[Rfam]
Nucleotides: 146
Stems, first nucleotide, its partner, number of pairs: 011089005017081003027071002029068001032065004038059005045052002098136005104130004113126005
Number, partner (000 for none) and nucleotide at each position: 001000a002000g003000g004000a005000u006000a007000a008000a009000a010000a011089c012088u013087g014086g015085g016000g017081g018080g019079u020000a021000u022000u023000a024000g025000a026000a027071g028070u029068u030000u031000a032065g033064a034063a035062a036000g037000a038059u039058g040057c041056a042055g043000a044000a045052g046051c047000u048000u049000a050000g051046g052045c053000g054000u055042u056041u057040g058039u059038a060000u061000a062035u063034u064033u065032c066000g067000a068029a069000u070028a071027c072000g073000g074000a075000c076000a077000a078000a079019a080018c081017c082000a083000a084000a085015c086014c087013c088012a089011g090000a091000a092000g093000u094000a095000u096000a097000g098136a099135g100134u101133u102132c103000a104130g105129a106128u107127c108000g109000u110000c111000c112000a113126c114125a115124a116123c117122c118000u119000u120000u121000u122117g123116g124115u125114u126113g127107g128106a129105u130104c131000g132102g133101a134100a135099c136098u137000u138000g139000a140000a141000g142000u143000u144000g145000g146000a